This 78-nucleotide RNA from Schistosoma bovis belongs to the Rfam family "mir-3492 microRNA precursor family". A search with the family's covariance model found it, with a score of 50 bits. Rfam 15.1 lists 21,496 matches to the family in 13 species. Pairs were carried over by alignment from the consensus structure, which was predicted with RNAalifold.

RNA sequence: AGCUUUUCGAAUCCGUGCUGAGAUUUCGUCAGACACUAACCCAUUAGGACUGAUCAGGCUUCCGAAAUAAGUGAAGUU
Numbered sequence: 001a002g003c004u005u006u007u008c009g010a011a012u013c014c015g016u017g018c019u020g021a022g023a024u025u026u027c028g029u030c031a032g033a034c035a036c037u038a039a040c041c042c043a044u045u046a047g048g049a050c051u052g053a054u055c056a057g058g059c060u061u062c063c064g065a066a067a068u069a070a071g072u073g074a075a076g077u078u
Stems, first nucleotide, its partner, number of pairs: 002077005008071001011068002016064002020061003024058003028054003